[Rfam]
RNA: TPP riboswitch aptamer (THI element)
Organism: Silanimonas sp.
RNA sequence: GACCGGAAGCAGGGGUGCCCGUCGCGGGCUGAGAGAGACCCUUCGAACCUGAUGCGGGCCACACCGCCGUAGGGAGACUUCGACGCGCCGCCU
Numbered sequence: 001g002a003c004c005g006g007a008a009g010c011a012g013g014g015g016u017g018c019c020c021g022u023c024g025c026g027g028g029c030u031g032a033g034a035g036a037g038a039c040c041c042u043u044c045g046a047a048c049c050u051g052a053u054g055c056g057g058g059c060c061a062c063a064c065c066g067c068c069g070u071a072g073g074g075a076g077a078c079u080u081c082g083a084c085g086c087g088c089c090g091c092c093u
Base pairs, nucleotide, nucleotide: 006081007080008079009078011042012041013040014039016036017029018028019027020026021025048073049072050071051070054067055066056065057064